[Rfam]
RNA sequence: GGCGCGGGCCGUGACUGGCGCUGAGGUGGAGUACCACCGGGGAGCGGCCCGGCGGCGUCCGCCGCCUUGCCGCGCGCCUGGGCGCACACC
Number, nucleotide and partner (000 for none) at each position: 001g000002g000003c000004g000005c051006g050007g049008g048009c047010c046011g045012u044013g000014a000015c041016u040017g078018g077019c076020g075021c074022u000023g000024a000025g000026g037027u036028g035029g034030a000031g000032u000033a000034c029035c028036a027037c026038c000039g000040g016041g015042g000043a000044g012045c011046g010047g009048c008049c007050c006051g005052g000053c000054g000055g000056c000057g000058u000059c000060c000061g000062c000063c000064g000065c000066c000067u000068u084069g083070c082071c081072g000073c000074g021075c020076g019077c018078c017079u000080g000081g071082g070083c069084g068085c000086a000087c000088a000089c000090c000
Rfam assigns this 90-nucleotide sequence from Actinospica durhamensis to the family "ZMP/ZTP riboswitch aptamer (pfl RNA motif)". The match comes from Rfam's covariance-model search (44 bits). The base pairs follow the family's consensus structure, which is taken from published work. Lineage of the source: Bacteria > Actinomycetota > Actinomycetes > Actinospicaceae > Actinospica. Rfam links the family to the GO terms one-carbon metabolic process and regulation of purine nucleotide biosynthetic process.